[Rfam]
RNA: c-di-AMP riboswitch aptamer (ydaO/yuaA leader)
RNA sequence: CCGUACGGGGCGCCCGGAGCCGGGGACCCACCGAACCUGGGGUGAAUCGGCCGACUCCCGUCCGGGACGACGCCGUAGGGCAACCCUUCCGAACCACCGCCCGAACCCGACAGCUAACCCGGUAGGCGGACCAUUGGAAGGAGUC
Numbered sequence: 001c002c003g004u005a006c007g008g009g010g011c012g013c014c015c016g017g018a019g020c021c022g023g024g025g026a027c028c029c030a031c032c033g034a035a036c037c038u039g040g041g042g043u044g045a046a047u048c049g050g051c052c053g054a055c056u057c058c059c060g061u062c063c064g065g066g067a068c069g070a071c072g073c074c075g076u077a078g079g080g081c082a083a084c085c086c087u088u089c090c091g092a093a094c095c096a097c098c099g100c101c102c103g104a105a106c107c108c109g110a111c112a113g114c115u116a117a118c119c120c121g122g123u124a125g126g127c128g129g130a131c132c133a134u135u136g137g138a139a140g141g142a143g144u145c
Base pairs, nucleotide, nucleotide: 001017002016019123020122021121022120023119024118029039030038040108041107042106048075049074050073051072078102079101080100081099